[Rfam]
RNA sequence: GCAAUGGACGACUAGGGUUCCGGUCUGCGUGGCUUCAGCGCCUGCAGAUGCUGGUCCGAGAGUGGUCGACCUCAGGCGAGGUUACACGGCGGGAUAAAAGCCCGGGAGAG
Numbered sequence: 001g002c003a004a005u006g007g008a009c010g011a012c013u014a015g016g017g018u019u020c021c022g023g024u025c026u027g028c029g030u031g032g033c034u035u036c037a038g039c040g041c042c043u044g045c046a047g048a049u050g051c052u053g054g055u056c057c058g059a060g061a062g063u064g065g066u067c068g069a070c071c072u073c074a075g076g077c078g079a080g081g082u083u084a085c086a087c088g089g090c091g092g093g094a095u096a097a098a099a100g101c102c103c104g105g106g107a108g109a110g
Stems, first nucleotide, its partner, number of pairs: 007067003011063002015057002020054002022051001023049006068083006085105001087108001091103003
RNA: Guanidine-I riboswitch aptamer